Overview:
This 128-nucleotide RNA sequence from Oryctolagus cuniculus belongs to the Rfam family "Small nucleolar RNA SNORA69". Taxonomically the source falls in Oryctolagus (Eukaryota, Opisthokonta, Eumetazoa, Euarchontoglires). The base pairs follow the family's consensus structure, which was predicted with PFOLD. From the family's description: U69 is a member of the H/ACA class of small nucleolar RNAs (snoRNAs) which act as guides in the the modification of uridines to pseudouridines.
RNA sequence: AAAACAGUUUGCAGUUAUACUACAUUUUGUGGCAAUACUGAUAUUAUCCUGCUGAAAGAAGCUGUGUUACUCAUUUUCGAUUUUGCCUAAAAUGCAGGUAAAAUCAUGACAGACUGACAUGAACAAUU
Number, nucleotide and partner (000 for none) at each position: 001a000002a000003a053004a000005c051006a050007g049008u000009u000010u000011g000012c000013a000014g000015u000016u000017a000018u037019a036020c000021u034022a000023c032024a000025u000026u000027u000028u000029g000030u000031g000032g023033c000034a021035a000036u019037a018038c000039u000040g000041a000042u000043a000044u000045u000046a000047u000048c000049c007050u006051g005052c000053u003054g000055a000056a000057a000058g000059a000060a000061g000062c000063u121064g120065u119066g118067u117068u116069a115070c000071u113072c112073a000074u000075u000076u000077u000078c000079g105080a104081u103082u102083u101084u100085g099086c098087c097088u096089a000090a000091a000092a000093u000094g000095c000096a088097g087098g086099u085100a084101a083102a082103a081104u080105c079106a000107u000108g000109a000110c000111a000112g072113a071114c000115u069116g068117a067118c066119a065120u064121g063122a000123a000124c000125a000126a000127u000128u000